RNA sequence: GCGUCAGAUUAGUUCAGUGCUUACUUCGUUGCACACUCAAGGUACACAGCUCUACCUUCUCUUCUCCGAGGGUCGGACCACGGCCGCUGUCUGCCGUUUUG
Numbered sequence: 001g002c003g004u005c006a007g008a009u010u011a012g013u014u015c016a017g018u019g020c021u022u023a024c025u026u027c028g029u030u031g032c033a034c035a036c037u038c039a040a041g042g043u044a045c046a047c048a049g050c051u052c053u054a055c056c057u058u059c060u061c062u063u064c065u066c067c068g069a070g071g072g073u074c075g076g077a078c079c080a081c082g083g084c085c086g087c088u089g090u091c092u093g094c095c096g097u098u099u100u101g
Stems, first nucleotide, its partner, number of pairs: 002096002005093003012085001014083002017081003025077004
RNA: Vault RNA